[Rfam]
RNA sequence: AUCUUUCAUCAAGAGCUGGGCCGACGCCCACGCCAACCUGCCCCGCCCGGGCAAGGUGGAUCGCGAAAGCGGAUGUGGCUUCUAACGAAGCAACCAAGCGGGUCAAG
Numbered sequence: 001a002u003c004u005u006u007c008a009u010c011a012a013g014a015g016c017u018g019g020g021c022c023g024a025c026g027c028c029c030a031c032g033c034c035a036a037c038c039u040g041c042c043c044c045g046c047c048c049g050g051g052c053a054a055g056g057u058g059g060a061u062c063g064c065g066a067a068a069g070c071g072g073a074u075g076u077g078g079c080u081u082c083u084a085a086c087g088a089a090g091c092a093a094c095c096a097a098g099c100g101g102g103u104c105a106a107g
Stems, first nucleotide, its partner, number of pairs: 007075004015031001017030005033059002037056003040052003046101002078091004
Dot-bracket structure: ......((((....(.(((((....)))))).((..((((((...[[..))).))).))............))))..((((......))))........]]......
RNA: SAM-I/IV (S-adenosyl methionine) riboswitch aptamer